[Rfam]
RNA sequence: AUGAUUACAAGAGGAGAGACUACGGAAAACGUGGCGCCGAAGGAGCAAACAUUAGUGAAUCUCUCAGGCAAAAAGACUCUUGUAGGACG
Numbered sequence: 001a002u003g004a005u006u007a008c009a010a011g012a013g014g015a016g017a018g019a020c021u022a023c024g025g026a027a028a029a030c031g032u033g034g035c036g037c038c039g040a041a042g043g044a045g046c047a048a049a050c051a052u053u054a055g056u057g058a059a060u061c062u063c064u065c066a067g068g069c070a071a072a073a074a075g076a077c078u079c080u081u082g083u084a085g086g087a088c089g
Stems, first nucleotide, its partner, number of pairs: 006084008020034004036069003039065002043063003049056002

The record is an 89-nucleotide RNA from Pontibacillus marinus, which matches "Glycine riboswitch aptamer" in Rfam. On this family, see Babina et al., MBio 2017: "In Vivo Behavior of the Tandem Glycine Riboswitch in Bacillus subtilis". Rfam describes the family as follows. This family represents the bacterial glycine riboswitch.